[Rfam]
RNA sequence: GCCUUUGUGGCGCAGUGGUAACGCGUCGCACUUGUACUGCUAAAAUUGCAAUCAAUGCGAAGAUCACAAGUUCAAUUCUUGUCGGAGGCA
Numbered sequence: 001g002c003c004u005u006u007g008u009g010g011c012g013c014a015g016u017g018g019u020a021a022c023g024c025g026u027c028g029c030a031c032u033u034g035u036a037c038u039g040c041u042a043a044a045a046u047u048g049c050a051a052u053c054a055a056u057g058c059g060a061a062g063a064u065c066a067c068a069a070g071u072u073c074a075a076u077u078c079u080u081g082u083c084g085g086a087g088g089c090a
Base pairs, nucleotide, nucleotide: 001089002088003087004086005085006084007083010024011023012022026060027059028058029057030056066082067081068080069079070078
Dot-bracket structure: (((((((..(((.........))).(((((.........................))))).....(((((.......)))))))))))).